[Rfam]
RNA sequence: UAGUGGUACAAUACCUCAGCCUUAUCAGGUGUUGUAUAUAUUCACCUGGAAGUACUGAGGUUGAGUUUCACUG
Numbered sequence: 001u002a003g004u005g006g007u008a009c010a011a012u013a014c015c016u017c018a019g020c021c022u023u024a025u026c027a028g029g030u031g032u033u034g035u036a037u038a039u040a041u042u043c044a045c046c047u048g049g050a051a052g053u054a055c056u057g058a059g060g061u062u063g064a065g066u067u068u069c070a071c072u073g
Stems, first nucleotide, its partner, number of pairs: 003071004008066002013061007022052002025049007
Shown here is a 73-nucleotide sequence from Anolis carolinensis, a member of the family "mir-875 microRNA precursor family". Gene Ontology terms of the family: miRNA-mediated post-transcriptional gene silencing and RISC complex. The sequence is in the family's curated seed alignment. The organism belongs to Anolis, within Eukaryota. The literature on the family includes a 2010 paper in Genes Dev by Chiang et al., "Mammalian microRNAs: experimental evaluation of novel and previously annotated genes".